[Rfam]
RNA sequence: GAGCAAUCCCGGACGUAUUCCAAAUCCGUUUAAGAAACCGCCUGCACGCACUGGCGCCCCGCACGCGCUCGACGAUACUUGAACUGUCGUCGCGUCAUACCCCCCCAAGUGACGCGUCGGCAAGGCGUUGAUAGACCAUACGCCUGUUGUGACUCCUGAUGGUCUUGACCCGGAAUUCUCUCCCCAAGAACCCGG
Dot-bracket structure: .......................................(((...........................................((((.((.(.(((..........))).).)).))))((((((((........).)))))).).............)))......((((..(((.........))).))))
Shown here is a 195-nucleotide sequence from Pseudomonas rhizosphaerae, a member of the family "RgsA sRNA".
Taxonomically the source falls in Pseudomonas (Bacteria, Pseudomonadota, Gammaproteobacteria, Pseudomonadales).
Pairs were carried over by alignment from the consensus structure, which was predicted with RNAalifold.
A reference for the family is Lu et al. (2018), "RgsA, an RpoS-dependent sRNA, negatively regulates rpoS expression in Pseudomonas aeruginosa", Microbiology.
Rfam classes the family as a small RNA.
Rfam links the family to the GO terms sRNA-mediated gene silencing, response to hydrogen peroxide and response to oxidative stress.